Overview
The family of this 139-nucleotide RNA sequence from Leersia perrieri is "Small nucleolar RNA Z247". A reference for the family is Chen et al. (2003), "The high diversity of snoRNAs in plants: identification and comparative study of 120 snoRNA genes from Oryza sativa", Nucleic Acids Res. Pairs were carried over by alignment from the consensus structure, which was predicted with PFOLD. Taxonomically the source falls in Leersia (Eukaryota, Embryophyta, Oryzoideae, Oryzeae). The match comes from Rfam's covariance-model search (42 bits).
RNA sequence: AAGCUUGAAGACGAGGAUCUUGUAUCCUACAUCCUGGUGGGACUCGACAUCGAGUUCAAUCCGCUGGUUUCCUUAGUUGCUGCAAGACUGGAACCGAUCAGUGUUGGAGAGUUGUACUCUCUACUGGUCAGCUACGAGC
Number, nucleotide and partner (000 for none) at each position: 001a000002a000003g000004c138005u137006u136007g135008a000009a000010g000011a000012c000013g000014a000015g000016g000017a000018u000019c000020u000021u000022g000023u000024a000025u000026c000027c000028u000029a000030c000031a000032u000033c000034c000035u000036g000037g000038u000039g000040g000041g000042a000043c000044u000045c000046g000047a000048c000049a000050u000051c000052g000053a000054g000055u000056u000057c000058a000059a000060u000061c000062c000063g000064c000065u000066g000067g000068u000069u000070u000071c000072c000073u000074u000075a000076g000077u000078u000079g000080c000081u000082g000083c000084a000085a000086g000087a000088c107089u106090g105091g000092a104093a000094c000095c000096g000097a000098u000099c000100a000101g000102u000103g000104u092105u090106g089107g088108a000109g000110a000111g000112u000113u000114g000115u000116a000117c000118u000119c000120u000121c000122u000123a000124c000125u000126g000127g000128u000129c000130a000131g000132c000133u000134a000135c007136g006137a005138g004139c000